[Rfam]
RNA: serC leader
Organism: Pelagibacterium lacus
RNA sequence: CAGUGGGCCAUCCCUUCCCAACGAGGGACGCCCAUCUGUAAGGAUGGAGCAA
Dot-bracket structure: ..........((((((......))))))...((((((....)))))).....
Numbered sequence: 001c002a003g004u005g006g007g008c009c010a011u012c013c014c015u016u017c018c019c020a021a022c023g024a025g026g027g028a029c030g031c032c033c034a035u036c037u038g039u040a041a042g043g044a045u046g047g048a049g050c051a052a
Stems, first nucleotide, its partner, number of pairs: 011028006032047006